[Rfam]
RNA: Insect-specific Flavivirus 3' UTR cis-acting replication element (CRE)
RNA sequence: CCACCGUAAAGAGUAAAAAAGCUGACGUUUCGAGCGUUAGCCCUUCGUCAGAGCGAUUGGCGAAGGGCUAACGCUCGAAACGUCAGCUU
Numbered sequence: 001c002c003a004c005c006g007u008a009a010a011g012a013g014u015a016a017a018a019a020a021g022c023u024g025a026c027g028u029u030u031c032g033a034g035c036g037u038u039a040g041c042c043c044u045u046c047g048u049c050a051g052a053g054c055g056a057u058u059g060g061c062g063a064a065g066g067g068c069u070a071a072c073g074c075u076c077g078a079a080a081c082g083u084c085a086g087c088u089u
Base pairs, nucleotide, nucleotide: 019089020088021087022086024084025083026082027081029079030078031077032076033075034074035073039069040068041067042066043065044064045063046062047061048060049059050058051057